[Rfam]
RNA sequence: GAGAGGGAGAGUGCGGCCGACGGUGGCCUUCGGGCCGCUGAGGAAAGUCCCCCCACCGACCAGGCACGCAGCCGCAUGCAAGUGCGGAUGGCGAGAGUCAUGGCAAUGGCACAGAAACGACACGCCCCGCCGUCAAUGAUGAUACGGCUGAGCCUCCGGGCGAGAAGCGCUGAUGUUGCGCGAGUUAACCCGUUGAGUGUAGCGGCGGGAACCGAUGAAACGGCGAAUCCCUGCGGGUGCAAGCCAGAACAGGGCAGAGGGCGCCUGGGCCUGCCCGGGUAUGGCGCGUAGCUGAAUGCCGCACCGAACAGAAGGGGGCUUACUCCUCCGACUC
Dot-bracket structure: (((..((((((((((((...((((((((....))))))))....[[[.[[[[[((((...[.[[..((((((((((......)))))(((((....)))))((...(.((............((.((((((((..........((((..........................................))))........))))))))...))........)).)..)))))))))))...((((.....(((((........]].]...))))).....))))............))))))..........]]]]]]]].)).))))..)))
Numbered sequence: 001g002a003g004a005g006g007g008a009g010a011g012u013g014c015g016g017c018c019g020a021c022g023g024u025g026g027c028c029u030u031c032g033g034g035c036c037g038c039u040g041a042g043g044a045a046a047g048u049c050c051c052c053c054c055a056c057c058g059a060c061c062a063g064g065c066a067c068g069c070a071g072c073c074g075c076a077u078g079c080a081a082g083u084g085c086g087g088a089u090g091g092c093g094a095g096a097g098u099c100a101u102g103g104c105a106a107u108g109g110c111a112c113a114g115a116a117a118c119g120a121c122a123c124g125c126c127c128c129g130c131c132g133u134c135a136a137u138g139a140u141g142a143u144a145c146g147g148c149u150g151a152g153c154c155u156c157c158g159g160g161c162g163a164g165a166a167g168c169g170c171u172g173a174u175g176u177u178g179c180g181c182g183a184g185u186u187a188a189c190c191c192g193u194u195g196a197g198u199g200u201a202g203c204g205g206c207g208g209g210a211a212c213c214g215a216u217g218a219a220a221c222g223g224c225g226a227a228u229c230c231c232u233g234c235g236g237g238u239g240c241a242a243g244c245c246a247g248a249a250c251a252g253g254g255c256a257g258a259g260g261g262c263g264c265c266u267g268g269g270c271c272u273g274c275c276c277g278g279g280u281a282u283g284g285c286g287c288g289u290a291g292c293u294g295a296a297u298g299c300c301g302c303a304c305c306g307a308a309c310a311g312a313a314g315g316g317g318g319c320u321u322a323c324u325c326c327u328c329c330g331a332c333u334c
Stems, first nucleotide, its partner, number of pairs: 001334003006329004010324002012303006021040008045321003049318005054239004061268001063266002067235005072087005088101005102230002107226001109224002123214002126209008144193004243285004252276005

Description:
This 334-nucleotide sequence from Methanofollis fontis belongs to the Rfam family "Archaeal RNase P". Its Rfam clan is "RNaseP clan". Rfam classes the family as a ribozyme. From the family's description: Ribonuclease P (RNase P) is a ubiquitous endoribonuclease, found in archaea, bacteria and eukarya as well as chloroplasts and mitochondria. Its best characterised activity is the generation of mature 5'-ends of tRNAs by cleaving the 5'-leader elements of precursor-tRNAs. Cellular RNase Ps are ribonucleoproteins.